[Rfam]
RNA sequence: UGCGCUGUGUGGUAUCUGCAGCCAGCUGCUGAAUCAGCUGGUUAGUUCAAAAGUCAGUGCUAGACUAACUCAACAUCUGGCAUCGUUGGUCUCCAUGCUGCCUGUGUUUGGAGUCCUGGUAGAUCUGUUGAAACAAAU
Numbered sequence: 001u002g003c004g005c006u007g008u009g010u011g012g013u014a015u016c017u018g019c020a021g022c023c024a025g026c027u028g029c030u031g032a033a034u035c036a037g038c039u040g041g042u043u044a045g046u047u048c049a050a051a052a053g054u055c056a057g058u059g060c061u062a063g064a065c066u067a068a069c070u071c072a073a074c075a076u077c078u079g080g081c082a083u084c085g086u087u088g089g090u091c092u093c094c095a096u097g098c099u100g101c102c103u104g105u106g107u108u109u110g111g112a113g114u115c116c117u118g119g120u121a122g123a124u125c126u127g128u129u130g131a132a133a134c135a136a137a138u
Base pairs, nucleotide, nucleotide: 002060003059004058005057006056007055014054015053017051018046019045020043021042022041023040024039025038026037027036028035064126070119071118072117079108080107081106082105083104

Shown here is a 138-nucleotide RNA sequence from Echeneis naucrates, a member of the family "Small nucleolar RNA SNORA8". ACA8 is a member of the H/ACA class of snoRNA that guide the sites of modification of uridines to pseudouridines. A search with the family's covariance model found it, with a score of 47 bits. The family's RNA type in Rfam is H/ACA-box small nucleolar RNA.